RNA sequence: CCCACGGCUUGCGCCGUGGGCUUUACUCUUUCGCCCCUGGCGGGGCU
Numbered sequence: 001c002c003c004a005c006g007g008c009u010u011g012c013g014c015c016g017u018g019g020g021c022u023u024u025a026c027u028c029u030u031u032c033g034c035c036c037c038u039g040g041c042g043g044g045g046c047u
Base pairs, nucleotide, nucleotide: 001020002019003018004017005016006015007014008013033046034045035044036043037042
RNA: Acido-Lenti-1 RNA